[Rfam]
The family of this 54-nucleotide sequence from Megalops atlanticus is "UnaL2 LINE 3' element". The family has 30 seed sequences and 493,311 matches in Rfam 15.1. From the family's description: The eel long interspersed element (LINE) UnaL2 and its partner short interspersed element (SINE) share a conserved 3' tail containing a stem-loop that is critical for their retrotransposition. Presumably, the first step of retrotransposition is the recognition of their 3' tails by UnaL2-encoded reverse transcriptase. The solution structure of a 17-nucleotide RNA derived from the 3' tail of UnaL2 was determined by NMR.
RNA sequence: CAUUGUUACUGAUGUAAGUCGCUCUGGAUAAGAGCGUCUGCUAAAUGCUAAUAA
Dot-bracket structure: ............((((...((((((.....))))))..))).)...........

Its family is annotated with transposition, RNA-mediated in the Gene Ontology. On this family, see Baba et al., RNA 2004: "Solution structure of an RNA stem-loop derived from the 3' conserved region of eel LINE UnaL2". It is annotated as a cis-regulatory element. Taxonomically the source falls in Megalops (Eukaryota, Eumetazoa, Deuterostomia, Elopiformes).